[Rfam]
RNA sequence: GUUGAAGUUCCAUCCACAAAUGGCUAAGAUUUAGGUCUUGGUGCAUGUCUGGCUUAGUGUAUAUGAGUCAUUGAAGUUGCAGGAGCAAUACCCAGCCUCUUAACAGAACAAGAAAUUGGGUAUUGCUCCUG
Numbered sequence: 001g002u003u004g005a006a007g008u009u010c011c012a013u014c015c016a017c018a019a020a021u022g023g024c025u026a027a028g029a030u031u032u033a034g035g036u037c038u039u040g041g042u043g044c045a046u047g048u049c050u051g052g053c054u055u056a057g058u059g060u061a062u063a064u065g066a067g068u069c070a071u072u073g074a075a076g077u078u079g080c081a082g083g084a085g086c087a088a089u090a091c092c093c094a095g096c097c098u099c100u101u102a103a104c105a106g107a108a109c110a111a112g113a114a115a116u117u118g119g120g121u122a123u124u125g126c127u128c129c130u131g
Base pairs, nucleotide, nucleotide: 010023011022012021013020080131081130082129083128084127085126086125087124088123089122090121091120093118094117095116098113099112100111101110

Shown here is a 131-nucleotide sequence from Aconitum kusnezoffii, a member of the family "Plastid-psbA-1 3UTR RNA". The sequence is in the family's curated seed alignment. Rfam describes the family as follows. Plastid psbA-1 is a non-coding RNA (ncRNA) present in plastids. It was identified in inverted repeat sequences in the 3 prime untranslate region (3UTR) of photosystem II quinone-binding protein (psbA). A reference for the family is Richter et al. (2023), "Retrograde signaling in plants: A critical review focusing on the GUN pathway and beyond", Plant Commun.